[Rfam]
RNA sequence: CCUUUCAAGAUGAAGCAUUUUUCGGAUGUAAAGUCCCUUUCGAGGGCGUGUCCGAGAGCGCAAAACCCAUGUGGACACCUCCGUUGCCUUCCUUCUGAUCCAAAC
Numbered sequence: 001c002c003u004u005u006c007a008a009g010a011u012g013a014a015g016c017a018u019u020u021u022u023c024g025g026a027u028g029u030a031a032a033g034u035c036c037c038u039u040u041c042g043a044g045g046g047c048g049u050g051u052c053c054g055a056g057a058g059c060g061c062a063a064a065a066c067c068c069a070u071g072u073g074g075a076c077a078c079c080u081c082c083g084u085u086g087c088c089u090u091c092c093u094u095c096u097g098a099u100c101c102a103a104a105c
Stems, first nucleotide, its partner, number of pairs: 003104003023083004
RNA: Small nucleolar RNA Z13/snr52